This 74-nucleotide RNA from Luteimonas sp. MC1825 belongs to the Rfam family "tRNA". The organism belongs to Luteimonas, within Bacteria. A search with the family's covariance model found it, with a score of 66 bits. Pairs were carried over by alignment from the consensus structure, which is taken from published work.
RNA sequence: GCGCCCGUAGCUCAGCUGGAUAGAGCACCAGGCUACGAACUUGGGGGUCGGAGGUUCGAAUCCUUCCGGGCGCA
Numbered sequence: 001g002c003g004c005c006c007g008u009a010g011c012u013c014a015g016c017u018g019g020a021u022a023g024a025g026c027a028c029c030a031g032g033c034u035a036c037g038a039a040c041u042u043g044g045g046g047g048u049c050g051g052a053g054g055u056u057c058g059a060a061u062c063c064u065u066c067c068g069g070g071c072g073c074a
Stems, first nucleotide, its partner, number of pairs: 001073007010026004028044005050066005